Notes:
A member of the RNA family "Lysine riboswitch aptamer" from Pseudoramibacter alactolyticus, 172 nucleotides long. The base pairs follow the family's consensus structure, which is taken from published work. Riboswitches are metabolite binding domains within certain messenger RNAs that serve as precision sensors for their corresponding targets. The source organism's lineage runs through Bacteria, Bacillati, Eubacteriales, Pseudoramibacter and Pseudoramibacter alactolyticus.

RNA sequence: UGGAAAGAUAGAGGCGCGUUUUUUAAGAGUAUGCGGGGUGAUCGCGGCAGGGCGAAGGGAUCACCGCGGAAAGGAAAAGACGCCGAAGUGUCAUCUGCCUGCUGUGGUGAUUGCUGGGUCCGUCGAGAACAUCGCCGGGACUGUCGCCGUCAGGCGGGGGGCUGUCAAAUAC
Numbered sequence: 001u002g003g004a005a006a007g008a009u010a011g012a013g014g015c016g017c018g019u020u021u022u023u024u025a026a027g028a029g030u031a032u033g034c035g036g037g038g039u040g041a042u043c044g045c046g047g048c049a050g051g052g053c054g055a056a057g058g059g060a061u062c063a064c065c066g067c068g069g070a071a072a073g074g075a076a077a078a079g080a081c082g083c084c085g086a087a088g089u090g091u092c093a094u095c096u097g098c099c100u101g102c103u104g105u106g107g108u109g110a111u112u113g114c115u116g117g118g119u120c121c122g123u124c125g126a127g128a129a130c131a132u133c134g135c136c137g138g139g140a141c142u143g144u145c146g147c148c149g150u151c152a153g154g155c156g157g158g159g160g161g162c163u164g165u166c167a168a169a170u171a172c
Stems, first nucleotide, its partner, number of pairs: 007166005016083009032068005038062001087115003090111006116142002119139004124134003144157005